[Rfam]
RNA sequence: UGGCCAUAGAAUAACUUAUUCUGUGGCCACUUUGAGUUACGAUAGUUACUAUGCUAAUUUACGAGACUACAACCUUAGUAAGUGAUUUACUAGAACAUUAUAGUAAAUGUCACCGUGAGUUAUAGUAACACGAGUAUCGUAAAUACAUAUUUAUGUUAUCGUAAAUUGAUAUAAACAUUAUCGUAAAUCAAAGUGCCUAUAGAACAAGUUAUUCUAGGCA
Numbered sequence: 001u002g003g004c005c006a007u008a009g010a011a012u013a014a015c016u017u018a019u020u021c022u023g024u025g026g027c028c029a030c031u032u033u034g035a036g037u038u039a040c041g042a043u044a045g046u047u048a049c050u051a052u053g054c055u056a057a058u059u060u061a062c063g064a065g066a067c068u069a070c071a072a073c074c075u076u077a078g079u080a081a082g083u084g085a086u087u088u089a090c091u092a093g094a095a096c097a098u099u100a101u102a103g104u105a106a107a108u109g110u111c112a113c114c115g116u117g118a119g120u121u122a123u124a125g126u127a128a129c130a131c132g133a134g135u136a137u138c139g140u141a142a143a144u145a146c147a148u149a150u151u152u153a154u155g156u157u158a159u160c161g162u163a164a165a166u167u168g169a170u171a172u173a174a175a176c177a178u179u180a181u182c183g184u185a186a187a188u189c190a191a192a193g194u195g196c197c198u199a200u201a202g203a204a205c206a207a208g209u210u211a212u213u214c215u216a217g218g219c220a
Base pairs, nucleotide, nucleotide: 003219004218005217007216008215009214010213011212012211013210014209015208016207017206019204020203021202022201023200024199025198026197028195029194030193031192032191033190037186038185039184040183041182042181043180044179045178046177050173051172052171053170055168056167057166058165059164060163061162062161065160066159069156070155071154072152075142076141077140082137083136084135086133087132088127089126090125091124092123094121095120096119098117103111